RNA: Small nucleolar RNA SNORA17
RNA sequence: CAUGCCCCAGCUCGUGUUGCAGAUGUGGCUGUAGUGCCAUGUUUGUGUCAUUAGGUGGCAGAGAGGAAAAGGCUGUGUCUUUGCUGGUGCUCUGGAACUUGUGGGCACUCAGAAAUGAUGAGCAACCUGACAAU
Numbered sequence: 001c002a003u004g005c006c007c008c009a010g011c012u013c014g015u016g017u018u019g020c021a022g023a024u025g026u027g028g029c030u031g032u033a034g035u036g037c038c039a040u041g042u043u044u045g046u047g048u049c050a051u052u053a054g055g056u057g058g059c060a061g062a063g064a065g066g067a068a069a070a071g072g073c074u075g076u077g078u079c080u081u082u083g084c085u086g087g088u089g090c091u092c093u094g095g096a097a098c099u100u101g102u103g104g105g106c107a108c109u110c111a112g113a114a115a116u117g118a119u120g121a122g123c124a125a126c127c128u129g130a131c132a133a134u
Base pairs, nucleotide, nucleotide: 003060004059005058006057007055008054010052014048015047019046020045021044022043024041025040026039027038028037029036070128071127072126074124075123076122081118082117083116084112085111086110087109088107089106090105091104092103